[Rfam]
RNA: SAM riboswitch aptamer (S box leader)
RNA sequence: CUCUUAUCAAGAAUGGCGGAGGGAUCGGCCCUAUGAAGCCUGGCAACCGGCCAACGGUUGAGAAACCCGAAAGCGCGGUGCCAAAUCCGGCGACACUUAAGUUAGUCGAGAGAUGAGAG
Numbered sequence: 001c002u003c004u005u006a007u008c009a010a011g012a013a014u015g016g017c018g019g020a021g022g023g024a025u026c027g028g029c030c031c032u033a034u035g036a037a038g039c040c041u042g043g044c045a046a047c048c049g050g051c052c053a054a055c056g057g058u059u060g061a062g063a064a065a066c067c068c069g070a071a072a073g074c075g076c077g078g079u080g081c082c083a084a085a086u087c088c089g090g091c092g093a094c095a096c097u098u099a100a101g102u103u104a105g106u107c108g109a110g111a112g113a114u115g116a117g118a119g
Stems, first nucleotide, its partner, number of pairs: 001119008013041001015040003021031003025090004042082004047078002049074001051073001086111001091108004